The family of this 264-nucleotide sequence from Nannospalax galili is "Mason-Pfizer monkey virus packaging signal". The literature on the family includes a 2004 paper in Virus Res by Mustafa et al., "Mutational analysis of the predicted secondary RNA structure of the Mason-Pfizer monkey virus packaging signal". It is annotated as a cis-regulatory element. Pairs were carried over by alignment from the consensus structure, which was predicted with PFOLD. About the family: This family represents a group of sequences that are related to the Mason-Pfizer monkey virus (MPMV) packaging signal. The packaging signal is located in the 5' UTR and is required for specific RNA encapsidation.

[Rfam]
Nucleotides: 264
Base pairs, nucleotide, nucleotide: 006031007030013025014024037047038046072116073115075112076111082105085101086100088098089097126140128139129138130137131136148191149190150189151187152186153185198240199239200238201237202236203235204234208226209225210224211223212222249264251262252261253260254259
Number, partner (000 for none) and nucleotide at each position: 001000u002000g003000g004000c005000a006031c007030c008000c009000a010000a011000c012000a013025u014024g015000g016000g017000u018000c019000c020000u021000g022000g023000a024014u025013a026000c027000u028000g029000a030007g031006g032000c033000a034000g035000c036000a037047g038046u039000g040000a041000g042000g043000g044000a045000g046038a047037c048000g049000a050000c051000g052000u053000g054000a055000a056000a057000a058000g059000g060000a061000a062000c063000g064000c065000g066000u067000u068000u069000g070000a071000c072116a073115u074000a075112u076111c077000g078000g079000a080000g081000c082105c083000g084000c085101c086100g087000u088098g089097g090000g091000a092000a093000c094000c095000u096000g097089c098088c099000u100086c101085g102000g103000c104000u105082g106000a107000a108000a109000c110000a111076g112075a113000a114000a115073g116072u117000a118000a119000g120000u121000g122000g123000a124000a125000a126140c127000g128139u129138c130137u131136g132000a133000u134000c135000a136131u137130g138129g139128g140126g141000c142000a143000a144000g145000a146000a147000u148191u149190g150189a151187g152186u153185c154000a155000g156000c157000a158000u159000g160000a161000g162000c163000u164000u165000u166000a167000u168000g169000u170000u171000a172000a173000g174000c175000a176000g177000u178000u179000a180000a181000a182000a183000g184000a185153g186152g187151c188000u189150u190149u191148a192000a193000a194000g195000a196000c197000a198240c199239g200238g201237g202236g203235a204234g205000u206000a207000a208226a209225g210224g211223u212222u213000a214000a215000a216000a217000c218000u219000a220000c221000a222212g223211a224210u225209u226208u227000a228000u229000u230000u231000c232000a233000u234204u235203u236202c237201u238200u239199u240198g241000a242000u243000u244000u245000u246000g247000u248000g249264a250000a251262g252261g253260a254259c255000a256000c257000u258000u259254g260253u261252c262251c263000c264249u